[Rfam]
RNA: Group II catalytic intron D1-D4-6
RNA sequence: AAAGUCCCUGACGACCAAGACCUAGCGAGUCAUGUUGUCCCCGAGUCAUGCGCAGUGCAUCGCGAGGUGCGCGGCGAAGCGUUGACAGGGGUGCGUGUAGGCCAGCCAUUGAGCCACGAAAUGUUUAUUCAGACCCGGGUGCCGACGCUGUUACUGGCGCGGAAGGCAACACGUGAGGGCGCACCAUCGCAAGUGCCCGCACGACCCGGCGGGGUCACAGACCC
Numbered sequence: 001a002a003a004g005u006c007c008c009u010g011a012c013g014a015c016c017a018a019g020a021c022c023u024a025g026c027g028a029g030u031c032a033u034g035u036u037g038u039c040c041c042c043g044a045g046u047c048a049u050g051c052g053c054a055g056u057g058c059a060u061c062g063c064g065a066g067g068u069g070c071g072c073g074g075c076g077a078a079g080c081g082u083u084g085a086c087a088g089g090g091g092u093g094c095g096u097g098u099a100g101g102c103c104a105g106c107c108a109u110u111g112a113g114c115c116a117c118g119a120a121a122u123g124u125u126u127a128u129u130c131a132g133a134c135c136c137g138g139g140u141g142c143c144g145a146c147g148c149u150g151u152u153a154c155u156g157g158c159g160c161g162g163a164a165g166g167c168a169a170c171a172c173g174u175g176a177g178g179g180c181g182c183a184c185c186a187u188c189g190c191a192a193g194u195g196c197c198c199g200c201a202c203g204a205c206c207c208g209g210c211g212g213g214g215u216c217a218c219a220g221a222c223c224c
Stems, first nucleotide, its partner, number of pairs: 012037004019031003023192001025190002039091004045086004049081002051076003055072007111216001113215003117211002135209006141167003146161003172203004177198006